c-di-AMP riboswitch aptamer (ydaO/yuaA leader): a 191-nucleotide RNA from Actinomadura sp. WAC 06369.
Nucleotides: 191
Stems, first nucleotide, its partner, number of pairs: 011176004018032003033171006043089001090156003098132004135150004
Number, partner (000 for none) and nucleotide at each position: 001000c002000g003000c004000a005000g006000c007000g008000g009000c010000a011176c012175g013174c014173c015000g016000a017000a018032u019031c020030c021000g022000c023000c024000u025000c026000g027000c028000g029000c030020g031019g032018a033171g034170c035169c036168g037167g038166g039000g040000a041000c042000c043089c044000a045000u046000u047000c048000g049000c050000g051000u052000c053000g054000g055000a056000g057000u058000c059000c060000g061000g062000a063000c064000c065000g066000u067000u068000c069000c070000g071000g072000a073000c074000g075000g076000g077000c078000a079000u080000u081000c082000c083000g084000a085000c086000g087000c088000c089043g090156g091155g092154g093000u094000g095000a096000a097000u098132c099131g100130g101129u102000c103000c104000g105000u106000c107000c108000c109000c110000u111000g112000g113000a114000c115000a116000c117000g118000u119000c120000c121000a122000g123000c124000g125000g126000a127000c128000g129101g130100c131099c132098g133000u134000a135150g136149g137148g138147c139000c140000a141000c142000u143000u144000c145000c146000c147138g148137c149136c150135c151000g152000a153000a154092c155091c156090c157000g158000u159000c160000a161000g162000c163000u164000a165000a166038c167037c168036c169035g170034g171033u172000a173014g174013g175012c176011g177000u178000c179000u180000g181000g182000a183000a184000g185000a186000a187000a188000c189000g190000g191000a